[Rfam]
RNA: UnaL2 LINE 3' element
Organism: Oncorhynchus kisutch
RNA sequence: UCCGCACAUGACUGUAAGUCGUUUUGGAUCAAAGUGUCUGCCAAAUGGCAUAUA
Numbered sequence: 001u002c003c004g005c006a007c008a009u010g011a012c013u014g015u016a017a018g019u020c021g022u023u024u025u026g027g028a029u030c031a032a033a034g035u036g037u038c039u040g041c042c043a044a045a046u047g048g049c050a051u052a053u054a
Base pairs, nucleotide, nucleotide: 013043014041015040016039020036021035022034023033024032025031